[Rfam]
RNA sequence: UGUGAUUCCCAUAAGUGUUGUAGCACCCCACCUUGGGGCUACUUUAUCCAUAUUCUGAAUUC
Dot-bracket structure: ................(..(((((.((.......)).)))))..).................
Numbered sequence: 001u002g003u004g005a006u007u008c009c010c011a012u013a014a015g016u017g018u019u020g021u022a023g024c025a026c027c028c029c030a031c032c033u034u035g036g037g038g039c040u041a042c043u044u045u046a047u048c049c050a051u052a053u054u055c056u057g058a059a060u061u062c
Stems, first nucleotide, its partner, number of pairs: 017045001020042005026036002
A member of the RNA family "Plastid-psbN 5UTR RNA" from Vanilla planifolia, 62 nucleotides long. From the family's description: Plastid psbN is a non-coding RNA (ncRNA) recognised in plastids. It was reported as a conserved 11 stem-loop in the prime untranslated region (5UTR) of psbN genes. For this family Rfam cites "Retrograde signaling in plants: A critical review focusing on the GUN pathway and beyond" (Richter et al., Plant Commun, 2023). The base pairs follow the family's consensus structure, which was predicted with LocARNA. Rfam 15.1 lists 2,345 matches to the family in 397 species. Rfam classes the family as a cis-regulatory element.